[Rfam]
Nucleotides: 088
Base pairs, nucleotide, nucleotide: 012075013074015072016071017070018069023064024063025062026061027060029059030058031057032056033055
Number, partner (000 for none) and nucleotide at each position: 001000g002000g003000g004000c005000g006000u007000c008000a009000g010000c011000a012075c013074c014000u015072u016071g017070g018069c019000u020000u021000u022000a023064g024063a025062c026061u027060g028000c029059u030058u031057a032056c033055u034000g035000c036000u037000a038000a039000u040000c041000g042000c043000u044000a045000c046000g047000g048000g049000a050000g051000a052000a053000a054000c055033a056032g057031u058030a059029a060027c061026a062025g063024u064023c065000c066000a067000c068000a069018g070017u071016c072015a073000u074013g075012g076000c077000u078000a079000c080000u081000g082000g083000c084000c085000c086000c087000u088000g
mir-132 microRNA precursor family: an 88-nucleotide sequence from Pogona vitticeps. Pairs were carried over by alignment from the consensus structure, which was predicted with RNAalifold. Taxonomically the source falls in Pogona (Eukaryota, Opisthokonta, Amniota, Iguania).